[Rfam]
Record summary:
Shown here is a 222-nucleotide RNA from Thiomonas bhubaneswarensis, a member of the family "Group II catalytic intron D1-D4-6". Taxonomically the source falls in Thiomonas (Bacteria, Pseudomonadati, Betaproteobacteria, Burkholderiales). Gene Ontology term of the family: Group II intron splicing. The base pairs follow the family's consensus structure.
RNA sequence: CAAGUCCCUUGCAGUGAAGGCGUAGCGAACCACACUGGCCCCGAGUCAUGCGCAGUGCACCGCGAGGUGCCCGGCGAAGCGUUGACAGGGGUACGUGCGGGCCAGCCAUUGAGCCGCGAAAGAAUUUCUUCCCAGGGUGCCGACGCCGUCCGAUUUGUGGAAGGCUACAUGGUCGCGCGCGCUAUCGCGAGCGCACGACCGACCCGGCGUGGUCGUAGAACC
Numbered sequence: 001c002a003a004g005u006c007c008c009u010u011g012c013a014g015u016g017a018a019g020g021c022g023u024a025g026c027g028a029a030c031c032a033c034a035c036u037g038g039c040c041c042c043g044a045g046u047c048a049u050g051c052g053c054a055g056u057g058c059a060c061c062g063c064g065a066g067g068u069g070c071c072c073g074g075c076g077a078a079g080c081g082u083u084g085a086c087a088g089g090g091g092u093a094c095g096u097g098c099g100g101g102c103c104a105g106c107c108a109u110u111g112a113g114c115c116g117c118g119a120a121a122g123a124a125u126u127u128c129u130u131c132c133c134a135g136g137g138u139g140c141c142g143a144c145g146c147c148g149u150c151c152g153a154u155u156u157g158u159g160g161a162a163g164g165c166u167a168c169a170u171g172g173u174c175g176c177g178c179g180c181g182c183u184a185u186c187g188c189g190a191g192c193g194c195a196c197g198a199c200c201g202a203c204c205c206g207g208c209g210u211g212g213u214c215g216u217a218g219a220a221c222c
Base pairs, nucleotide, nucleotide: 012037013036014035015034016033019031020030023190025188026187039091040090041089042088045086046085047084048083049081050080051076052075053074055072057070058069059068060067061066111214113213114212115211116210117209118208132207133206135205136204137203138202139165140164141163144159145158146157170201171200172199173198174197175196177194178193179192180191